Shown here is a 195-nucleotide sequence from Biostraticola tofi, a member of the family "Yersinia sRNA 276".
By type it is an antisense RNA.
Pairs were carried over by alignment from the consensus structure, which was predicted with RNAfold.
Taxonomically the source falls in Biostraticola (Bacteria, Pseudomonadota, Gammaproteobacteria, Enterobacterales).

RNA sequence: CACCGACAUCAGCGAUUCAUUCUGCGAGCCCUGGCCGACCGCCAGAUAGGCGUUCAUGCCCAGCUCUUUCAUCUGCUGCUCGCCGAUAACGCGGGUAGUGGUGGUUUUACCGUAGCCAUCGGCCAGCUGGCGCGCUUGUGACGCCAGGUAAGCCGGAUUACAGAUAUUCGGCGGCAUAUUGCCCAGGUCUUUGGC
Dot-bracket structure: ....(((....(.(.(((.(...).))).).)(((.....)))......((......))..(((..........)))((.(((((.(...((.(((..(((((....))))).....))).))..).))))).))(((.((..(..........)..)).)))...((.(((........))).)))))......